[Rfam]
RNA sequence: ACCUCUGUGGACUUAAUCCGGACACUAUAAAAGAAUAUUGUGCAUGUGAAAAUAUGCUCAUUAUAAAUUUGUAGUGUUCGGAUUGAGUUCAUGAGACUG
Numbered sequence: 001a002c003c004u005c006u007g008u009g010g011a012c013u014u015a016a017u018c019c020g021g022a023c024a025c026u027a028u029a030a031a032a033g034a035a036u037a038u039u040g041u042g043c044a045u046g047u048g049a050a051a052a053u054a055u056g057c058u059c060a061u062u063a064u065a066a067a068u069u070u071g072u073a074g075u076g077u078u079c080g081g082a083u084u085g086a087g088u089u090c091a092u093g094a095g096a097c098u099g
Stems, first nucleotide, its partner, number of pairs: 003095002009090023039060002043056005
Rfam assigns this 99-nucleotide sequence from Zizania palustris to the family "MIR1878 microRNA precursor family". It scores 93 bits against the family's covariance model.